[Rfam]
RNA sequence: GGCUUUUGCCCCAGGGCCUGUUGGUGUAUACUACAGAGAAGCCUACUAGGUCCCGGGGUGAAAGGCC
Dot-bracket structure: ((((...((((..(((...(..(((((.....))......)))..)....)))..))))....))))
Rfam assigns this 67-nucleotide RNA from Muraenolepis orangiensis to the family "MAT2A 3'UTR stem loop A". The organism belongs to Muraenolepis, within Eukaryota. The family's consensus secondary structure is taken from published work. It scores 62 bits against the family's covariance model.